[Rfam]
RNA: Small nucleolar RNA SNORA73 family
RNA sequence: CUAACGGGGAUACUCCCUGGGAAGUCACUUUCUUUGGGCUCUGUCCAAGUGACCUAAGGGAGCAUAGUCUCUGCCCUGUGAUGUACAGUCCCUUAGCACAAUGCUGGAGAAGAAUCUGGGCCUCGAGUCAAGACCUGCAUAUCUCUACAACUUGUUGGAGUCUUGUGAACAAUGACUAAGGAGACCAACUGCACAGGAAAAGAAA
Dot-bracket structure: (((.((.(((((..(((..(((......)))....)))...)))))..(((......(((((.(((((.........))..))).)..))))....)))..)).)))..........................((((..(..........(((.((...((.(...).)).......)).))).......)..))))........